Record summary:
This 130-nucleotide RNA from Microtus ochrogaster belongs to the Rfam family "Small nucleolar RNA SNORA38". The source organism's lineage runs through Eukaryota, Vertebrata, Eutheria, Glires and Microtus. A search with the family's covariance model found it, with a score of 103 bits. Pairs were carried over by alignment from the consensus structure, which was predicted with RNAfold.

RNA sequence: UCCUCCUGCAAAGGCGUGUUUUGGGCUCCUUGUUCUUGGACAUGUAAGAAUCAGAGGCAGAAAAAUGUGGAUUUGCAAAGUCUGAGACCGGCUUGCUCCGUUCAAUCUCUGGAUCAUCCAUCCUACAGAG
Numbered sequence: 001u002c003c004u005c006c007u008g009c010a011a012a013g014g015c016g017u018g019u020u021u022u023g024g025g026c027u028c029c030u031u032g033u034u035c036u037u038g039g040a041c042a043u044g045u046a047a048g049a050a051u052c053a054g055a056g057g058c059a060g061a062a063a064a065a066u067g068u069g070g071a072u073u074u075g076c077a078a079a080g081u082c083u084g085a086g087a088c089c090g091g092c093u094u095g096c097u098c099c100g101u102u103c104a105a106u107c108u109c110u111g112g113a114u115c116a117u118c119c120a121u122c123c124u125a126c127a128g129a130g
Stems, first nucleotide, its partner, number of pairs: 002057004015044007024030002069123003073120001090108002093105003